RNA sequence: CAAGUUGUUUUCUAGGGUUCCGCGGUGCAGGAUGCCGGCUGGUCCGAGAGAAAACACACAGCGGAUACGCUGUGGUCACGGAGGGAGAAAAGCCCGGGAGUC
Numbered sequence: 001c002a003a004g005u006u007g008u009u010u011u012c013u014a015g016g017g018u019u020c021c022g023c024g025g026u027g028c029a030g031g032a033u034g035c036c037g038g039c040u041g042g043u044c045c046g047a048g049a050g051a052a053a054a055c056a057c058a059c060a061g062c063g064g065a066u067a068c069g070c071u072g073u074g075g076u077c078a079c080g081g082a083g084g085g086a087g088a089a090a091a092g093c094c095c096g097g098g099a100g101u102c
Stems, first nucleotide, its partner, number of pairs: 007055006015045002020042002022039001023037005057074007077097001079100001083095003
Rfam assigns this 102-nucleotide sequence from Paenibacillus pectinilyticus to the family "Guanidine-I riboswitch aptamer". The match comes from Rfam's covariance-model search (84 bits). The organism belongs to Paenibacillus, within Bacteria. The pairing is the family consensus, mapped onto this sequence. About the family: This family represents a conserved RNA structure found upstream of the ykkC and yxkD genes in Bacillus subtilis and related genes in other bacteria. The function of this family is unclear although it has been suggested that it may function to switch on efflux pumps and detoxification systems in response to harmful environmental molecules.